Overview: The family of this 94-nucleotide RNA sequence from Streptomyces chumphonensis is "ZMP/ZTP riboswitch aptamer (pfl RNA motif)". Gene Ontology terms of the family: regulation of purine nucleotide biosynthetic process and one-carbon metabolic process. The family's consensus secondary structure is taken from published work.

RNA sequence: GCCGCGAGUCGUGACUGGCGCGAGAAGAUGGGACCGACCAUCGGGGAGCGGCUCCAUCGACGACGAUGCACCGCCGCGCGCCUGGGCCGCCGGA
Numbered sequence: 001g002c003c004g005c006g007a008g009u010c011g012u013g014a015c016u017g018g019c020g021c022g023a024g025a026a027g028a029u030g031g032g033a034c035c036g037a038c039c040a041u042c043g044g045g046g047a048g049c050g051g052c053u054c055c056a057u058c059g060a061c062g063a064c065g066a067u068g069c070a071c072c073g074c075c076g077c078g079c080g081c082c083u084g085g086g087c088c089g090c091c092g093g094a
Stems, first nucleotide, its partner, number of pairs: 006054007015045002017082005028041004071089001073087003